This 72-nucleotide RNA from Echeneis naucrates belongs to the Rfam family "mir-27 microRNA precursor family". It scores 65 bits against the family's covariance model. Lineage of the source: Eukaryota > Gnathostomata > Euteleostomi > Osteoglossocephalai > Echeneis.

Nucleotides: 072
Base pairs, nucleotide, nucleotide: 011062012061013060014059015058016057017056018055019054020053026049027048028047029046030045031044032043
Number, partner (000 for none) and nucleotide at each position: 001000u002000g003000u004000g005000g006000c007000a008000g009000c010000a011062g012061g013060a014059c015058u016057u017056a018055g019054c020053c021000c022000a023000c024000a025000u026049g027048u028047g029046a030045a031044c032043a033000g034000u035000g036000a037000g038000u039000g040000a041000c042000a043032u044031g045030u046029u047028c048027a049026c050000a051000g052000u053020g054019g055018u056017u057016a058015a059014g060013u061012u062011c063000u064000g065000c066000c067000g068000c069000c070000a071000c072000a
Record summary
On this family, see Chen et al., Genes Dev 2005: "The developmental miRNA profiles of zebrafish as determined by small RNA cloning".